[Rfam]
RNA: mir-1000 microRNA precursor family
Organism: Callosobruchus maculatus
RNA sequence: AGCCUUGAUAUUGUCCUGUCACAGCAGUACUGUUCACGAGCUACUGCUGCUUCGGGACAUGCUCACGGCU
Numbered sequence: 001a002g003c004c005u006u007g008a009u010a011u012u013g014u015c016c017u018g019u020c021a022c023a024g025c026a027g028u029a030c031u032g033u034u035c036a037c038g039a040g041c042u043a044c045u046g047c048u049g050c051u052u053c054g055g056g057a058c059a060u061g062c063u064c065a066c067g068g069c070u
Stems, first nucleotide, its partner, number of pairs: 003068002006065001012059007022049008